This 204-nucleotide RNA from Oryza rufipogon belongs to the Rfam family "MIR812 microRNA precursor family".
RNA sequence: UUUAAGUGCAACCAUAAGUUUUCGCGCUUAACUUUGAUCGUCCGUUUUAUUUGAAAAAUUUUUAUAAUUAAUAUUUUUGUAGUUAUGAGAUGAUAAAACAUGAAUAGCACUUUACUCGUGACUUAUGUUUUCAAUUUUUUUUAAGAAAAUUUAAAUAAUACGGACGAUCAAAGUUGGACGUAAAAAAUCAUGGCUACACUGAAA
Numbered sequence: 001u002u003u004a005a006g007u008g009c010a011a012c013c014a015u016a017a018g019u020u021u022u023c024g025c026g027c028u029u030a031a032c033u034u035u036g037a038u039c040g041u042c043c044g045u046u047u048u049a050u051u052u053g054a055a056a057a058a059u060u061u062u063u064a065u066a067a068u069u070a071a072u073a074u075u076u077u078u079g080u081a082g083u084u085a086u087g088a089g090a091u092g093a094u095a096a097a098a099c100a101u102g103a104a105u106a107g108c109a110c111u112u113u114a115c116u117c118g119u120g121a122c123u124u125a126u127g128u129u130u131u132c133a134a135u136u137u138u139u140u141u142u143a144a145g146a147a148a149a150u151u152u153a154a155a156u157a158a159u160a161c162g163g164a165c166g167a168u169c170a171a172a173g174u175u176g177g178a179c180g181u182a183a184a185a186a187a188u189c190a191u192g193g194c195u196a197c198a199c200u201g202a203a204a
Stems, first nucleotide, its partner, number of pairs: 028177018047158004
Taxonomically the source falls in Oryza (Eukaryota, Streptophytina, commelinids, Oryzinae).